RNA sequence: UGACCACUUCCAUUACGUGUCUGAACGCUCGCUUUUAAGGAAGUCAAGGCAACGGUACGCCGGGUCAAAUGCCGA
Numbered sequence: 001u002g003a004c005c006a007c008u009u010c011c012a013u014u015a016c017g018u019g020u021c022u023g024a025a026c027g028c029u030c031g032c033u034u035u036u037a038a039g040g041a042a043g044u045c046a047a048g049g050c051a052a053c054g055g056u057a058c059g060c061c062g063g064g065u066c067a068a069a070u071g072c073c074g075a
Base pairs, nucleotide, nucleotide: 001067002066003065004064005063006044007043008042009041010040011039